Shown here is an 86-nucleotide sequence from Carlito syrichta, a member of the family "mir-3154 microRNA precursor family". A search with the family's covariance model found it, with a score of 65 bits. Lineage of the source: Eukaryota > Eumetazoa > Teleostomi > Dipnotetrapodomorpha > Carlito.
RNA sequence: AAACCCCUCAUUGCCAUCCCCAGCUCCCAGUCACCCCUGCCACAGCAAAGGAGGCAAAAGGGGAGCCGGGAGCUGAGAGGGAAUCA
Number, nucleotide and partner (000 for none) at each position: 001a000002a000003a084004c000005c081006c080007c079008u078009c077010a000011u000012u076013g000014c000015c000016a000017u000018c000019c000020c000021c000022a000023g073024c072025u071026c070027c069028c068029a000030g000031u064032c063033a000034c062035c061036c060037c000038u056039g055040c054041c053042a000043c051044a000045g000046c000047a000048a000049a000050g000051g043052a000053g041054g040055c039056a038057a000058a000059a000060g036061g035062g034063g032064a031065g000066c000067c000068g028069g027070g026071a025072g024073c023074u000075g000076a012077g009078a008079g007080g006081g005082a000083a000084u003085c000086a000